[Rfam]
The family of this 97-nucleotide sequence from Listeria monocytogenes is "SAM riboswitch aptamer (S box leader)".
The organism belongs to Listeria monocytogenes, within Bacteria.
RNA sequence: AACUUAUCAAGAAAGGUGGAGGGUUCUGGCCCCGUGAACCUUGGCAACCGGAAGUUUCACGGUGCCAAAUCCAGCAGGUAACACUGACAGAUAAGGC
Numbered sequence: 001a002a003c004u005u006a007u008c009a010a011g012a013a014a015g016g017u018g019g020a021g022g023g024u025u026c027u028g029g030c031c032c033c034g035u036g037a038a039c040c041u042u043g044g045c046a047a048c049c050g051g052a053a054g055u056u057u058c059a060c061g062g063u064g065c066c067a068a069a070u071c072c073a074g075c076a077g078g079u080a081a082c083a084c085u086g087a088c089a090g091a092u093a094a095g096g097c
Stems, first nucleotide, its partner, number of pairs: 003095006013042001015041002021032003026074004043066004048062002050058003070089001075086003